Nucleotides: 047
Base pairs, nucleotide, nucleotide: 001020002019003018005016006015007014008013034047035046036045037044038043
Number, partner (000 for none) and nucleotide at each position: 001020u002019c003018a004000u005016c006015g007014g008013g009000a010000c011000g012000g013008c014007c015006c016005g017000c018003u019002g020001a021000g022000a023000u024000c025000c026000a027000u028000a029000c030000c031000g032000c033000u034047g035046c036045g037044g038043g039000a040000c041000g042000g043038c044037c045036c046035g047034c
This 47-nucleotide RNA sequence from Pseudomethylobacillus aquaticus belongs to the Rfam family "Guanidine-II riboswitch aptamer (mini-ykkC)". Simpler in structure and has fewer highly conserved nucleotide positions than the ykkC-yxkD leader. The source organism's lineage runs through Bacteria, Pseudomonadati, Pseudomonadota, Nitrosomonadales and Pseudomethylobacillus. For this family Rfam cites "Identification of 22 candidate structured RNAs in bacteria using the CMfinder comparative genomics pipeline" (Weinberg et al., Nucleic Acids Res, 2007). Pairs were carried over by alignment from the consensus structure, which is taken from published work. Gene Ontology term of the family: regulation of gene expression.